[Rfam]
RNA sequence: UACCAAAAUUCUUUGUCAGGGUGUUUCUGCGUACAUUCUAGUACAACUUACACAUACAGAAGGGCCUGUUACAGUUUUGGAAGAGCAAUACUACCCACCCUCGAUCUAUCCAUCGUUUUGAUGGAGUCAUGGUUGAAACCUAGUUGAACAAUCUUCGUUUUGAGGAUAUAUCAGCGCUUUUAUUUCGGGUACGGAGGAACUUAAGAGUUGAGCUUUGGAUCUGAAAAGAAUUAUUAUGCCAUGGCUCGUAGUAAAGAACCUCACAUCA
Numbered sequence: 001u002a003c004c005a006a007a008a009u010u011c012u013u014u015g016u017c018a019g020g021g022u023g024u025u026u027c028u029g030c031g032u033a034c035a036u037u038c039u040a041g042u043a044c045a046a047c048u049u050a051c052a053c054a055u056a057c058a059g060a061a062g063g064g065c066c067u068g069u070u071a072c073a074g075u076u077u078u079g080g081a082a083g084a085g086c087a088a089u090a091c092u093a094c095c096c097a098c099c100c101u102c103g104a105u106c107u108a109u110c111c112a113u114c115g116u117u118u119u120g121a122u123g124g125a126g127u128c129a130u131g132g133u134u135g136a137a138a139c140c141u142a143g144u145u146g147a148a149c150a151a152u153c154u155u156c157g158u159u160u161u162g163a164g165g166a167u168a169u170a171u172c173a174g175c176g177c178u179u180u181u182a183u184u185u186c187g188g189g190u191a192c193g194g195a196g197g198a199a200c201u202u203a204a205g206a207g208u209u210g211a212g213c214u215u216u217g218g219a220u221c222u223g224a225a226a227a228g229a230a231u232u233a234u235u236a237u238g239c240c241a242u243g244g245c246u247c248g249u250a251g252u253a254a255a256g257a258a259c260c261u262c263a264c265a266u267c268a
Stems, first nucleotide, its partner, number of pairs: 003080005019067004024062005031044004092191005101136006109125006143175005151167007194262004200256003209248005216241003

Shown here is a 268-nucleotide RNA sequence from Kluyveromyces lactis, a member of the family "Small nucleolar RNA snR191". A reference for the family is Badis et al. (2003), "A snoRNA that guides the two most conserved pseudouridine modifications within rRNA confers a growth advantage in yeast", RNA. Rfam's curators put it in the seed alignment. It is annotated as an H/ACA-box small nucleolar RNA. The base pairs follow the family's consensus structure, which was predicted with WAR. The family is grouped with related families in Rfam's "SNORA74 clan".